[Rfam]
RNA sequence: GGGUUGUGAUGACUGAGAACAUUUCUCGAUUUUGAUAAGGACCAAAGCAAGUUGUUUGGUCUGUGAUGGCAAUGUUUGUGCGUGUCUGAGCCUC
Numbered sequence: 001g002g003g004u005u006g007u008g009a010u011g012a013c014u015g016a017g018a019a020c021a022u023u024u025c026u027c028g029a030u031u032u033u034g035a036u037a038a039g040g041a042c043c044a045a046a047g048c049a050a051g052u053u054g055u056u057u058g059g060u061c062u063g064u065g066a067u068g069g070c071a072a073u074g075u076u077u078g079u080g081c082g083u084g085u086c087u088g089a090g091c092c093u094c
Stems, first nucleotide, its partner, number of pairs: 001093004
RNA: small nucleolar RNA snoR126